[Rfam]
RNA sequence: GCGCACCACUCCCACGGUGCGCCAUUAGUAAAAAAAAUUUAAAUUUUUUCAAAACUACUAAUGGCGCACCGUGGGAGUGGUGCGC
Numbered sequence: 001g002c003g004c005a006c007c008a009c010u011c012c013c014a015c016g017g018u019g020c021g022c023c024a025u026u027a028g029u030a031a032a033a034a035a036a037a038u039u040u041a042a043a044u045u046u047u048u049u050c051a052a053a054a055c056u057a058c059u060a061a062u063g064g065c066g067c068a069c070c071g072u073g074g075g076a077g078u079g080g081u082g083c084g085c
Base pairs, nucleotide, nucleotide: 001085002084003083004082005081006080008078009077010076011075012074013073014072016070017069018068019067020066021065022064023063024062027059028058029057